[Rfam]
Rfam assigns this 141-nucleotide RNA from Tardiphaga sp. vice352 to the family "Alphaproteobacterial sRNA BjrC1505".
A search with the family's covariance model found it, with a score of 126 bits.
The organism belongs to Tardiphaga, within Bacteria.
Rfam classes the family as a small RNA.
Pairs were carried over by alignment from the consensus structure.
The literature on the family includes a 2012 paper in RNA Biol by Madhugiri et al., "Small RNAs of the Bradyrhizobium/Rhodopseudomonas lineage and their analysis".

RNA sequence: UCUACGAGAUUUACGCGCAAUUAAGCUUUCUCGCAUAUGAAUCAAAUUGUCCUGUUUGGACACCGAGUGGCUCCUGUCCACUCUGUUUGACGCCUCCCUGUUAUCAACUUCAAAGCCGCCGGAAACGGCGGCUCUUUUUUU
Numbered sequence: 001u002c003u004a005c006g007a008g009a010u011u012u013a014c015g016c017g018c019a020a021u022u023a024a025g026c027u028u029u030c031u032c033g034c035a036u037a038u039g040a041a042u043c044a045a046a047u048u049g050u051c052c053u054g055u056u057u058g059g060a061c062a063c064c065g066a067g068u069g070g071c072u073c074c075u076g077u078c079c080a081c082u083c084u085g086u087u088u089g090a091c092g093c094c095u096c097c098c099u100g101u102u103a104u105c106a107a108c109u110u111c112a113a114a115g116c117c118g119c120c121g122g123a124a125a126c127g128g129c130g131g132c133u134c135u136u137u138u139u140u141u
Stems, first nucleotide, its partner, number of pairs: 001045001004042001005017002018039002022037002025034002049061004065083006089102004112135001114133008